RNA sequence: AGCCCUUUUUAAAAGCAGUCCAGAGAGGCUGACAAAGGGGGAGUAACUUAAAGUUUACAGUCUAUCACUGUAUACUUAUACCCUCUUUGUGCCAAUAGAGCAAAAGAGGGUUUUUUU
Numbered sequence: 001a002g003c004c005c006u007u008u009u010u011a012a013a014a015g016c017a018g019u020c021c022a023g024a025g026a027g028g029c030u031g032a033c034a035a036a037g038g039g040g041g042a043g044u045a046a047c048u049u050a051a052a053g054u055u056u057a058c059a060g061u062c063u064a065u066c067a068c069u070g071u072a073u074a075c076u077u078a079u080a081c082c083c084u085c086u087u088u089g090u091g092c093c094a095a096u097a098g099a100g101c102a103a104a105a106g107a108g109g110g111u112u113u114u115u116u117u
Base pairs, nucleotide, nucleotide: 003040004039005038006037007036008035009034016031017030018029019028020027052076053075054074056072057071058070059069060068061067080111081110082109083108084107085106086105087104088103090102091101092100
RNA: PyrR binding site